[Rfam]
RNA sequence: CUCUGGGCCGCAGAUCGUCAUGGCUCAGGGCGGAAAGAG
Numbered sequence: 001c002u003c004u005g006g007g008c009c010g011c012a013g014a015u016c017g018u019c020a021u022g023g024c025u026c027a028g029g030g031c032g033g034a035a036a037g038a039g
Stems, first nucleotide, its partner, number of pairs: 001030010

The family of this 39-nucleotide RNA sequence is "L31-Firmicutes ribosomal protein leader". On this family, see Eckert and Weinberg, BMC Microbiol 2020: "Discovery of 20 novel ribosomal leader candidates in bacteria and archaea". Its Rfam clan is "Ribosomal Protein L31 Leader clan". Rfam's curators put it in the seed alignment.